Source information
This 199-nucleotide RNA from Rhodopseudomonas palustris belongs to the Rfam family "Bradyrhizobiaceae sRNA BjrC174".
[Rfam]
RNA sequence: CUCACGCCUUCGUUAGCCGAAUCUUAUUACCGCCAGAUUUUCGCCCAUCGAACGCCCGGUCGACUUGCGAAAACAUCCUGGCGUUGGCCCGAUCCAGGCGGUCUCGGAUUCCUCAGCCCCCAGCCCCCCGAGGUCGUCGGGGUCGGGCCUGACGCAGCAACCAAUCCCCCAGCCUGGGCCAACGUGAGUUGGCCUUUUU
Numbered sequence: 001c002u003c004a005c006g007c008c009u010u011c012g013u014u015a016g017c018c019g020a021a022u023c024u025u026a027u028u029a030c031c032g033c034c035a036g037a038u039u040u041u042c043g044c045c046c047a048u049c050g051a052a053c054g055c056c057c058g059g060u061c062g063a064c065u066u067g068c069g070a071a072a073a074c075a076u077c078c079u080g081g082c083g084u085u086g087g088c089c090c091g092a093u094c095c096a097g098g099c100g101g102u103c104u105c106g107g108a109u110u111c112c113u114c115a116g117c118c119c120c121c122a123g124c125c126c127c128c129c130g131a132g133g134u135c136g137u138c139g140g141g142g143u144c145g146g147g148c149c150u151g152a153c154g155c156a157g158c159a160a161c162c163a164a165u166c167c168c169c170c171a172g173c174c175u176g177g178g179c180c181a182a183c184g185u186g187a188g189u190u191g192g193c194c195u196u197u198u199u
Base pairs, nucleotide, nucleotide: 038050041047079157081155082154083153084152086149087148088147089146090145091144092143093142094141095140099136100135101134102133103132104131105130106129107128116124117123176195177194178193179192180191181190182189183188
Record summary: The organism belongs to Rhodopseudomonas palustris, within Bacteria. It is annotated as a small RNA. It is one of the family's seed sequences.